The record is a 113-nucleotide RNA sequence from Nostocoides japonicum, which matches "SAM (S-adenosyl methionine) riboswitch aptamer" in Rfam.
The base pairs follow the family's consensus structure, which is taken from published work.
Its Rfam clan is "SAM clan".
Taxonomically the source falls in Nostocoides japonicum (Bacteria, Bacillati, Actinomycetota, Nostocoides).

RNA sequence: GGUCAUGAGCUCCAGCGCCAAGCCCCGGCUCGCUGGACGGCAACCCUCCUCGCGGUGGGGUGCCCCGGGUGAUGACAUGGCCCGCGUGUCUCCCGCGCGGGCAAGCGCGCACG
Numbered sequence: 001g002g003u004c005a006u007g008a009g010c011u012c013c014a015g016c017g018c019c020a021a022g023c024c025c026c027g028g029c030u031c032g033c034u035g036g037a038c039g040g041c042a043a044c045c046c047u048c049c050u051c052g053c054g055g056u057g058g059g060g061u062g063c064c065c066c067g068g069g070u071g072a073u074g075a076c077a078u079g080g081c082c083c084g085c086g087u088g089u090c091u092c093c094c095g096c097g098c099g100g101g102c103a104a105g106c107g108c109g110c111a112c113g
Stems, first nucleotide, its partner, number of pairs: 002076003009038001011037006021030002039064003044060003048055002080102009